[Rfam]
Shown here is an 87-nucleotide sequence, a member of the family "Flavo-1 RNA".
RNA sequence: GAUUAGCCUGCGUUAGCGGUUGUAGUGGCAUCCUUUUUUUGCUGCCACAUAUGGCAAAAAAAGAUAUAACGGAAGACGCGACCCUUG
Numbered sequence: 001g002a003u004u005a006g007c008c009u010g011c012g013u014u015a016g017c018g019g020u021u022g023u024a025g026u027g028g029c030a031u032c033c034u035u036u037u038u039u040u041g042c043u044g045c046c047a048c049a050u051a052u053g054g055c056a057a058a059a060a061a062a063g064a065u066a067u068a069a070c071g072g073a074a075g076a077c078g079c080g081a082c083c084c085u086u087g
Stems, first nucleotide, its partner, number of pairs: 016079003020075002025070002030065003036060008
Description:
Pairs were carried over by alignment from the consensus structure, which is taken from published work. By type it is a small RNA.